[Rfam]
A member of the RNA family "MIR4371 microRNA precursor family" from Glycine max, 158 nucleotides long. Lineage of the source: Eukaryota > Streptophytina > Magnoliopsida > Pentapetalae > Glycine subgen. Soja.
RNA sequence: UCGUUAUAUGAUGAUGUGGCAAGUGAAGUGUCACGUCAUCACAUCUAAUCAUUGACAUGUUAUUGUCACGUCAUUGGAGGUGAUGAUGUGACAAUGAAGUGUGUAUGACGAGACGUGAUGACGUGACACUCCAUCUAUCACGUUAUAACUUAACGAAA
Numbered sequence: 001u002c003g004u005u006a007u008a009u010g011a012u013g014a015u016g017u018g019g020c021a022a023g024u025g026a027a028g029u030g031u032c033a034c035g036u037c038a039u040c041a042c043a044u045c046u047a048a049u050c051a052u053u054g055a056c057a058u059g060u061u062a063u064u065g066u067c068a069c070g071u072c073a074u075u076g077g078a079g080g081u082g083a084u085g086a087u088g089u090g091a092c093a094a095u096g097a098a099g100u101g102u103g104u105a106u107g108a109c110g111a112g113a114c115g116u117g118a119u120g121a122c123g124u125g126a127c128a129c130u131c132c133a134u135c136u137a138u139c140a141c142g143u144u145a146u147a148a149c150u151u152a153a154c155g156a157a158a
Stems, first nucleotide, its partner, number of pairs: 001156006009148001011146009021136001023134003027130016044113003049108004055102004070087005